[Rfam]
Nucleotides: 066
Stems, first nucleotide, its partner, number of pairs: 001064005009053005022047002029041002033038001
Number, partner (000 for none) and nucleotide at each position: 001064c002063c003062u004061g005060u006000g007000g008000a009053c010052u011051g012050u013049c014000a015000a016000a017000c018000a019000a020000a021000c022047c023046g024000u025000a026000g027000u028000a029041g030040c031000g032000g033038g034000c035000a036000a037000g038033u039000g040030g041029c042000g043000a044000g045000a046023c047022g048000a049013g050012g051011c052010a053009g054000g055000a056000u057000g058000a059000a060005g061004c062003a063002g064001g065000a066000a

A member of the RNA family "RAGATH-18 RNA" from Aneurinibacillus soli, 66 nucleotides long. The source organism's lineage runs through Bacteria, Bacillati, Bacilli, Paenibacillaceae and Aneurinibacillus. About the family: Actinobacteria, Firmicutes, Fusobacteria, Thermotogae (1 example).